RNA: ZMP/ZTP riboswitch aptamer (pfl RNA motif)
Organism: Actinomyces respiraculi
RNA sequence: GGGCCCGACCGCGACUGGCGAGGGUGGGCCACCACCGGGGAGCGGCCGCACGAUGGAUGAGCAGGGGCGUCGCCCGCCUGGGCGCCCCGG
Numbered sequence: 001g002g003g004c005c006c007g008a009c010c011g012c013g014a015c016u017g018g019c020g021a022g023g024g025u026g027g028g029c030c031a032c033c034a035c036c037g038g039g040g041a042g043c044g045g046c047c048g049c050a051c052g053a054u055g056g057a058u059g060a061g062c063a064g065g066g067g068c069g070u071c072g073c074c075c076g077c078c079u080g081g082g083c084g085c086c087c088c089g090g
Stems, first nucleotide, its partner, number of pairs: 003051001006048002009045004015039002017078004024035004067085005